[Rfam]
RNA sequence: GCAUGCUAAUUCUUGGCACUGGGAGAAUUCACAGUUGAUUUAAAUGAUACUCUGUGGUUCUUUGGGUGCCAAAGCUUAGUUUGA
Numbered sequence: 001g002c003a004u005g006c007u008a009a010u011u012c013u014u015g016g017c018a019c020u021g022g023g024a025g026a027a028u029u030c031a032c033a034g035u036u037g038a039u040u041u042a043a044a045u046g047a048u049a050c051u052c053u054g055u056g057g058u059u060c061u062u063u064g065g066g067u068g069c070c071a072a073a074g075c076u077u078a079g080u081u082u083g084a
Stems, first nucleotide, its partner, number of pairs: 003082001005080005013072006020065001022063001023061001025060003029057006
RNA: mir-263 microRNA precursor family
Organism: Ceratitis capitata